About this RNA: The family of this 96-nucleotide sequence from Geobacter pickeringii is "c-di-GMP-I riboswitch aptamer".
Nucleotides: 096
Stems, first nucleotide, its partner, number of pairs: 012037002017032006040090004045086003048081003052074001
Number, partner (000 for none) and nucleotide at each position: 001000u002000u003000u004000c005000c006000g007000a008000a009000g010000a011000g012037g013036u014000a015000a016000a017032c018031c019030c020029a021028g022027g023000g024000u025000a026000a027022c028021c029020u030019g031018g032017g033000g034000g035000c036013a037012c038000a039000a040090a041089g042088c043087c044000a045086c046085g047084g048081g049080u050079c051000c052074u053000g054000u055000c056000a057000u058000u059000c060000a061000u062000c063000c064000u065000a066000g067000g068000a069000a070000u071000a072000u073000g074052a075000u076000c077000a078000g079050g080049a081048u082000a083000g084047c085046c086045g087043g088042g089041u090040u091000g092000g093000c094000g095000a096000g

About this RNA: Taxonomically the source falls in Geobacter (Bacteria, Desulfuromonadia, Geobacterales, Geobacteraceae). GEMM was predicted in a large-scale screen for bacterial structured RNA regulatory elements. The base pairs follow the family's consensus structure, which is taken from published work.